A member of the RNA family "Iron response element II" from Homarus americanus, 31 nucleotides long. About the family: IRE, TFRC, SLC40A1, SDHB, SLC11A2, CDC42BPA, ACO2, ALAS2_H.SAPIENS, CDC14A, EPAS1, ALAS2, qoxD, Hao1, NDUFS1, transferrin, Aconitate. The family's consensus secondary structure is taken from published work. Rfam 15.1 lists 5,197 matches to the family in 722 species. It is annotated as a cis-regulatory element.
[Rfam]
RNA sequence: UAUAUAUCAUAUACAGUGAUAUAUAUAUAUA
Number, nucleotide and partner (000 for none) at each position: 001u031002a030003u029004a028005u027006a026007u025008c000009a024010u023011a022012u021013a020014c018015a000016g000017u000018g014019a000020u013021a012022u011023a010024u009025a007026u006027a005028u004029a003030u002031a001